Overview:
The family of this 101-nucleotide RNA from Macleaya cordata is "Small nucleolar RNA R30/Z108".
[Rfam]
RNA sequence: AAUGCUUGUGAUGAAAAUAUCAAGCUCCCUCUUCUGAAAUGAAAGUUGAGGGCGAUCGCUAGCAGAAUCGAACCUAUUAAUUAAACGCCACCACUGAGUAA
Numbered sequence: 001a002a003u004g005c006u007u008g009u010g011a012u013g014a015a016a017a018u019a020u021c022a023a024g025c026u027c028c029c030u031c032u033u034c035u036g037a038a039a040u041g042a043a044a045g046u047u048g049a050g051g052g053c054g055a056u057c058g059c060u061a062g063c064a065g066a067a068u069c070g071a072a073c074c075u076a077u078u079a080a081u082u083a084a085a086c087g088c089c090a091c092c093a094c095u096g097a098g099u100a101a
Stems, first nucleotide, its partner, number of pairs: 006101004
The family has 6 seed sequences and 626 matches in Rfam 15.1.
From the family's description: snoR30 is a C/D box small nucleolar RNA which acts as a methylation guide for 18S ribosomal RNA in plants.
Gene Ontology terms of the family: nucleolus and RNA processing.
By type it is a C/D-box small nucleolar RNA.
Taxonomically the source falls in Macleaya (Eukaryota, Magnoliopsida, Ranunculales, Papaveraceae).